[Rfam]
A member of the RNA family "U11 spliceosomal RNA" from Stylophora pistillata, 128 nucleotides long. Rfam 15.1 lists 2,595 matches to the family in 1,202 species. Lineage of the source: Eukaryota > Metazoa > Cnidaria > Anthozoa > Stylophora. Pairs were carried over by alignment from the consensus structure, which is taken from published work.
RNA sequence: UAAAAGGGCCUUUGUCAUCACUGGCACGUGAGACCUUAGGCGCUUGCGCGGAAUCGCUAUCUAGAGAUUUCGGAGGCAUAAUCUUUGGACUUUCGUGGCAGUUAGUAGCCGAUCGCACCGACGCCCGU
Numbered sequence: 001u002a003a004a005a006g007g008g009c010c011u012u013u014g015u016c017a018u019c020a021c022u023g024g025c026a027c028g029u030g031a032g033a034c035c036u037u038a039g040g041c042g043c044u045u046g047c048g049c050g051g052a053a054u055c056g057c058u059a060u061c062u063a064g065a066g067a068u069u070u071c072g073g074a075g076g077c078a079u080a081a082u083c084u085u086u087g088g089a090c091u092u093u094c095g096u097g098g099c100a101g102u103u104a105g106u107a108g109c110c111g112a113u114c115g116c117a118c119c120g121a122c123g124c125c126c127g128u
Stems, first nucleotide, its partner, number of pairs: 008077005013026005027048006035040001049072007095126001097125003101122003105118001108116002